[Rfam]
RNA sequence: CAGGCCCUGCCUUCGAUGAAGCCUUUAGUUCCACUAAAGGUAUGAGUAGUCGUCGGUGGGGCCGU
Numbered sequence: 001c002a003g004g005c006c007c008u009g010c011c012u013u014c015g016a017u018g019a020a021g022c023c024u025u026u027a028g029u030u031c032c033a034c035u036a037a038a039g040g041u042a043u044g045a046g047u048a049g050u051c052g053u054c055g056g057u058g059g060g061g062c063c064g065u
Stems, first nucleotide, its partner, number of pairs: 003063009013052001015051003021041009
DUF3800-VIII RNA: a 65-nucleotide RNA sequence from Ensifer sp. BR816. Rfam classes the family as a small RNA. Rfam's curators put it in the seed alignment. From the family's description: Bacteroidetes, Cyanobacteria, Firmicutes, Planctomycetes (1 example), Proteobacteria, Tenericutes (1 example).